Glycine riboswitch aptamer: a 113-nucleotide sequence from Microbacterium pygmaeum.
A search with the family's covariance model found it, with a score of 41 bits.
RNA sequence: GCCACUCUGAAAAGCGAUCCCGUUCUGGACGGGGUCCGCCGACGGUGAAAGCACCGCCUCCCGCUUCGACGGGGGCGGCGCGAAACUCUCAGGCCGAUGACAGAGGGGGAGUU
Numbered sequence: 001g002c003c004a005c006u007c008u009g010a011a012a013a014g015c016g017a018u019c020c021c022g023u024u025c026u027g028g029a030c031g032g033g034g035u036c037c038g039c040c041g042a043c044g045g046u047g048a049a050a051g052c053a054c055c056g057c058c059u060c061c062c063g064c065u066u067c068g069a070c071g072g073g074g075g076c077g078g079c080g081c082g083a084a085a086c087u088c089u090c091a092g093g094c095c096g097a098u099g100a101c102a103g104a105g106g107g108g109g110a111g112u113u
Stems, first nucleotide, its partner, number of pairs: 002108002005105005016036006038094003041090002045088001047086001051081002
About the family: This family represents the bacterial glycine riboswitch.